[Rfam]
RNA sequence: AUGAGGCGAGAUCGCCACCCGCCAGCAAGGAUUUGCCCGCGGGUGUUAAACUG
Number, nucleotide and partner (000 for none) at each position: 001a000002u000003g000004a000005g000006g000007c000008g000009a000010g000011a000012u000013c000014g000015c000016c045017a044018c043019c042020c041021g040022c039023c000024a000025g036026c035027a034028a033029g000030g000031a000032u000033u028034u027035g026036c025037c000038c000039g022040c021041g020042g019043g018044u017045g016046u000047u000048a000049a000050a000051c000052u000053g000
RNA: ffh sRNA